RNA sequence: UCUGAUCUAUGAUGACUCUAUAAUCUGAGCAGACUGCUGGAUGAAGCUUGCGGAUAUGGGACUGAGAUCAGAC
Numbered sequence: 001u002c003u004g005a006u007c008u009a010u011g012a013u014g015a016c017u018c019u020a021u022a023a024u025c026u027g028a029g030c031a032g033a034c035u036g037c038u039g040g041a042u043g044a045a046g047c048u049u050g051c052g053g054a055u056a057u058g059g060g061a062c063u064g065a066g067a068u069c070a071g072a073c
Base pairs, nucleotide, nucleotide: 001072002071003070004069005068
Dot-bracket structure: (((((..............................................................))))).